The record is a 76-nucleotide sequence from Haemonchus placei, which matches "mir-5928 microRNA precursor family" in Rfam. The family's consensus secondary structure was predicted with RNAalifold. The organism belongs to Haemonchus, within Eukaryota.
RNA sequence: GGACCGAAAUUUGAAGUAGAGUAGAUAAGUAGGAUCAGCUGGCCAUACUUAUCCAAUCUACUUCAAGUUUGUACCC
Numbered sequence: 001g002g003a004c005c006g007a008a009a010u011u012u013g014a015a016g017u018a019g020a021g022u023a024g025a026u027a028a029g030u031a032g033g034a035u036c037a038g039c040u041g042g043c044c045a046u047a048c049u050u051a052u053c054c055a056a057u058c059u060a061c062u063u064c065a066a067g068u069u070u071g072u073a074c075c076c
Base pairs, nucleotide, nucleotide: 001075002074005071007070008069009068010067012065013064014063015062016061017060018059019058020057022055024053026051027050028049029048030047031046033044035042036041